[Rfam]
RNA sequence: CUCCCCUCUUUCACUUUACCAAUUAGACACAUCAUGUCUUUAUUGGUCAUUCAAGUGGGGUAGAAGAAAUAUCCUUUUAAAACUCAAGCAAACUGGUUGUUUGUCUUGCAUCCUGUCAGAGGAAACAAUC
Numbered sequence: 001c002u003c004c005c006c007u008c009u010u011u012c013a014c015u016u017u018a019c020c021a022a023u024u025a026g027a028c029a030c031a032u033c034a035u036g037u038c039u040u041u042a043u044u045g046g047u048c049a050u051u052c053a054a055g056u057g058g059g060g061u062a063g064a065a066g067a068a069a070u071a072u073c074c075u076u077u078u079a080a081a082a083c084u085c086a087a088g089c090a091a092a093c094u095g096g097u098u099g100u101u102u103g104u105c106u107u108g109c110a111u112c113c114u115g116u117c118a119g120a121g122g123a124a125a126c127a128a129u130c
Base pairs, nucleotide, nucleotide: 035062036061037060038059039058043054044053045052046051072123073122074121075120076119077118085108086106088104089103090102091101092100093099
Rfam assigns this 130-nucleotide sequence from Monodelphis domestica to the family "Small nucleolar RNA SNORA27". The family is grouped with related families in Rfam's "SNORA27 clan". By type it is an H/ACA-box small nucleolar RNA. Rfam links the family to the GO terms RNA processing and nucleolus. The base pairs follow the family's consensus structure. The organism belongs to Monodelphis, within Eukaryota. It is one of the family's seed sequences. ACA27 is a member of the H/ACA class of snoRNA that guide the sites of modification of uridines to pseudouridines.